[Rfam]
RNA sequence: AAUAGAAUAAUGACAAAUCAGAUUUUUCCUCUUUAUUUUCAGCUUUUUUAGUUGGAUUUGAAUUUUUUCAAGAGAAAAAAGUUGAAAAUAAGAAGAAAAUCUGAUUUGUCAUUCUUCUAUU
Numbered sequence: 001a002a003u004a005g006a007a008u009a010a011u012g013a014c015a016a017a018u019c020a021g022a023u024u025u026u027u028c029c030u031c032u033u034u035a036u037u038u039u040c041a042g043c044u045u046u047u048u049u050a051g052u053u054g055g056a057u058u059u060g061a062a063u064u065u066u067u068u069c070a071a072g073a074g075a076a077a078a079a080a081g082u083u084g085a086a087a088a089u090a091a092g093a094a095g096a097a098a099a100u101c102u103g104a105u106u107u108g109u110c111a112u113u114c115u116u117c118u119a120u121u
Stems, first nucleotide, its partner, number of pairs: 001121007009113014025099003029095002032092008041083002045079004